[Rfam]
RNA sequence: CCUGUGGAGUGUCACAGCAAACUGUAGUAGCAAGUGAUUAGCGAGGCAGGGCACGUAGAAGCAGGAA
Numbered sequence: 001c002c003u004g005u006g007g008a009g010u011g012u013c014a015c016a017g018c019a020a021a022c023u024g025u026a027g028u029a030g031c032a033a034g035u036g037a038u039u040a041g042c043g044a045g046g047c048a049g050g051g052c053a054c055g056u057a058g059a060a061g062c063a064g065g066a067a
Base pairs, nucleotide, nucleotide: 001065002064003063004062005061009054010053011052012051013050022049023048024047030042031041